[Rfam]
RNA sequence: UAGUGAUCAUGUAACUGGCGGAAAUGGAGUUAACCAUAAGGAGCAUGAUUUAAAAAAGUUAUCGACCGCCUGGGUAGAAUAU
Numbered sequence: 001u002a003g004u005g006a007u008c009a010u011g012u013a014a015c016u017g018g019c020g021g022a023a024a025u026g027g028a029g030u031u032a033a034c035c036a037u038a039a040g041g042a043g044c045a046u047g048a049u050u051u052a053a054a055a056a057a058g059u060u061a062u063c064g065a066c067c068g069c070c071u072g073g074g075u076a077g078a079a080u081a082u
Stems, first nucleotide, its partner, number of pairs: 005050008015040002017070005024037004059077005
RNA: ZMP/ZTP riboswitch aptamer (pfl RNA motif)
Organism: Clostridium carboxidivorans